[Rfam]
RNA sequence: GGCGAUAAAGAGUGUCGUGAAAUAGACGUUCGGACCCGGGGGCGGUACCCGGCGGCUCCACCAAAUCUCUCCGUUGUCGGGGGAAGCGAGGGGCCGAAACAGGAUCGACGUGCGUUCAAAGACGAAGACUUUUGCCCGGCCUGAAUGAGCCGUAAAACCGUUCAUAACUCUAAAUGCCAACGACAACGAGGCAUUCGCAAUCGCAGCGUAA
Numbered sequence: 001g002g003c004g005a006u007a008a009a010g011a012g013u014g015u016c017g018u019g020a021a022a023u024a025g026a027c028g029u030u031c032g033g034a035c036c037c038g039g040g041g042g043c044g045g046u047a048c049c050c051g052g053c054g055g056c057u058c059c060a061c062c063a064a065a066u067c068u069c070u071c072c073g074u075u076g077u078c079g080g081g082g083g084a085a086g087c088g089a090g091g092g093g094c095c096g097a098a099a100c101a102g103g104a105u106c107g108a109c110g111u112g113c114g115u116u117c118a119a120a121g122a123c124g125a126a127g128a129c130u131u132u133u134g135c136c137c138g139g140c141c142u143g144a145a146u147g148a149g150c151c152g153u154a155a156a157a158c159c160g161u162u163c164a165u166a167a168c169u170c171u172a173a174a175u176g177c178c179a180a181c182g183a184c185a186a187c188g189a190g191g192c193a194u195u196c197g198c199a200a201u202c203g204c205a206g207c208g209u210a211a
Base pairs, nucleotide, nucleotide: 001136002135003134004133005132015125016124017123018122027114028113029112031110032109036052037051038050039049040048053096054095055094056093057092058091059090137152138151139150140149

This 211-nucleotide RNA sequence from Glacieibacterium frigidum belongs to the Rfam family "permuted transfer-messenger RNA". Rfam classes the family as a non-coding RNA gene. The match comes from Rfam's covariance-model search (135 bits). Gene Ontology term of the family: RNA catabolic process. On this family, see Laslett et al., Nucleic Acids Res 2002: "BRUCE: a program for the detection of transfer-messenger RNA genes in nucleotide sequences". Rfam's curators write: Bacterial tmRNA, also known as 10Sa RNA or SsrA, is named for its dual tRNA and mRNA-like properties. Its role is to liberate the mRNA from a stalled ribosome. Taxonomically the source falls in Glacieibacterium (Bacteria, Pseudomonadati, Alphaproteobacteria, Sphingomonadales).